RNA sequence: AAAUUCAUGCGAAACGCUGUUUGUUGACAGCACCCCAGGCAGCCCAGGUCUUUAAGGCUGCGCAGACCGGUCCCCCCGGCUGUGACCUCUCCCCGGCCUGCCCACACACCGUUAACGCAGGCGCAUGCGUUGCCGCAUGGGUGU
Numbered sequence: 001a002a003a004u005u006c007a008u009g010c011g012a013a014a015c016g017c018u019g020u021u022u023g024u025u026g027a028c029a030g031c032a033c034c035c036c037a038g039g040c041a042g043c044c045c046a047g048g049u050c051u052u053u054a055a056g057g058c059u060g061c062g063c064a065g066a067c068c069g070g071u072c073c074c075c076c077c078g079g080c081u082g083u084g085a086c087c088u089c090u091c092c093c094c095g096g097c098c099u100g101c102c103c104a105c106a107c108a109c110c111g112u113u114a115a116c117g118c119a120g121g122c123g124c125a126u127g128c129g130u131u132g133c134c135g136c137a138u139g140g141g142u143g144u
Stems, first nucleotide, its partner, number of pairs: 011033001016031006039061006047087004062083004068079001070077001117144003124139006